[Rfam]
RNA sequence: UGUUAAAUAAUUUAAUAAACCCAUAUAUAUCUGUUAAUAUGGUUCAGAUGUUUCUACAAGAAGACCUUAAAUUUUCUUGCUAUGGGUAAAUCAAUUAAUUGU
Numbered sequence: 001u002g003u004u005a006a007a008u009a010a011u012u013u014a015a016u017a018a019a020c021c022c023a024u025a026u027a028u029a030u031c032u033g034u035u036a037a038u039a040u041g042g043u044u045c046a047g048a049u050g051u052u053u054c055u056a057c058a059a060g061a062a063g064a065c066c067u068u069a070a071a072u073u074u075u076c077u078u079g080c081u082a083u084g085g086g087u088a089a090a091u092c093a094a095u096u097a098a099u100u101g102u
Base pairs, nucleotide, nucleotide: 019087020086021085022084023083024082025081029049030048031047032046033045058078059077060076061075062074063073064072
This 102-nucleotide RNA sequence from Clostridium frigidicarnis belongs to the Rfam family "Purine riboswitch aptamer". Its Rfam clan is "Purine riboswitches". The literature on the family includes a 2003 paper in Cell by Mandal et al., "Riboswitches Control Fundamental Biochemical Pathways in Bacillus subtilis and Other Bacteria". Lineage of the source: Bacteria > Bacillota > Eubacteriales > Clostridiaceae > Clostridium. Pairs were carried over by alignment from the consensus structure, which is taken from published work.